RNA sequence: ACUCCGUUAGCAUAAUGGUUGAGUGCACUCGACUUUCUAUCGAAGGAUAGGGGUUCGAUUCCCCUACGGAGUA
Number, nucleotide and partner (000 for none) at each position: 001a072002c071003u070004c069005c068006g067007u066008u000009a000010g026011c025012a024013u023014a000015a000016u000017g000018g000019u000020u000021g000022a000023g013024u012025g011026c010027a000028c000029u043030c042031g041032a040033c000034u000035u000036u000037c000038u000039a000040u032041c031042g030043a029044a000045g000046g000047a000048u000049a065050g064051g063052g062053g061054u000055u000056c000057g000058a000059u000060u000061c053062c052063c051064c050065u049066a007067c006068g005069g004070a003071g002072u001073a000

Shown here is a 73-nucleotide RNA sequence from Fulvivirga imtechensis, a member of the family "tRNA". Transfer RNA (tRNA) molecules are approximately 80 nucleotides in length. Their secondary structure includes four short double-helical elements and three loops (D, anti-codon, and T loops). Further hydrogen bonds mediate the characteristic L-shaped molecular structure. tRNAs have two regions of fundamental functional importance: the anti-codon, which is responsible for specific mRNA codon recognition, and the 3' end, to which the tRNAs corresponding amino acid is attached (by aminoacyl-tRNA synthetases). tRNAs cope with the degeneracy of the genetic code in two manners: having more than one tRNA (with a specific anti-codon) for a particular amino acid; and 'wobble' base-pairing, i.e. permitting non-standard base-pairing at the 3rd anti-codon position. It scores 61 bits against the family's covariance model. NCBI's taxonomy places the organism under Bacteria, Cytophagia, Fulvivirgaceae, Fulvivirga, Fulvivirga imtechensis. It is annotated as a transfer RNA. Pairs were carried over by alignment from the consensus structure, which is taken from published work.